[Rfam]
Nucleotides: 108
Base pairs, nucleotide, nucleotide: 006096007095009093010092011059012058013057014056017030018029019028020027037053038052039051040050041049064089065088066087070083071082072081073080
Number, partner (000 for none) and nucleotide at each position: 001000u002000c003000a004000c005000g006096u007095c008000c009093a010092c011059g012058c013057g014056g015000g016000a017030g018029c019028c020027c021000a022000g023000g024000c025000a026000c027020g028019g029018g030017c031000u032000g033000a034000g035000a036000g037053g038052g039051g040050g041049c042000u043000g044000a045000c046000g047000c048000c049041g050040c051039c052038c053037c054000g055000a056014c057013c058012g059011c060000c061000g062000a063000a064089c065088c066087u067000g068000a069000u070083c071082c072081g073080g074000g075000u076000c077000a078000u079000g080073c081072c082071g083070g084000c085000g086000a087066a088065g089064g090000g091000a092010g093009u094000c095007g096006g097000a098000g099000u100000g101000u102000c103000g104000c105000c106000g107000u108000c
The family of this 108-nucleotide RNA sequence from Mumia flava is "TPP riboswitch aptamer (THI element)". Its family is annotated with thiamine pyrophosphate binding in the Gene Ontology.